The record is a 162-nucleotide RNA sequence from Maudiozyma saulgeensis, which matches "Small nucleolar RNA snR85" in Rfam. NCBI's taxonomy places the organism under Eukaryota, Saccharomycotina, Saccharomycetes, Saccharomycetales, Maudiozyma. Rfam links the family to the GO terms RNA processing and nucleolus.

RNA sequence: AGCCAGCACACUAGUCAAAUUCCCAAUGAACUCAUUCAGAUACUCAUUGGAGCCGUAUUUGUGCUAAUAAAAACUAUUGAAGAGCAGAUUUUCUCCGAUUUUCUUUUAAAUCGUAUGGAUAACGAACUUUUGUGUUAUCUGUGUAAAUCAUUUCUGAACUAA
Numbered sequence: 001a002g003c004c005a006g007c008a009c010a011c012u013a014g015u016c017a018a019a020u021u022c023c024c025a026a027u028g029a030a031c032u033c034a035u036u037c038a039g040a041u042a043c044u045c046a047u048u049g050g051a052g053c054c055g056u057a058u059u060u061g062u063g064c065u066a067a068u069a070a071a072a073a074c075u076a077u078u079g080a081a082g083a084g085c086a087g088a089u090u091u092u093c094u095c096c097g098a099u100u101u102u103c104u105u106u107u108a109a110a111u112c113g114u115a116u117g118g119a120u121a122a123c124g125a126a127c128u129u130u131u132g133u134g135u136u137a138u139c140u141g142u143g144u145a146a147a148u149c150a151u152u153u154c155u156g157a158a159c160u161a162a
Stems, first nucleotide, its partner, number of pairs: 005065006023050004029044001077156001079154003090146001100110003115142005121136003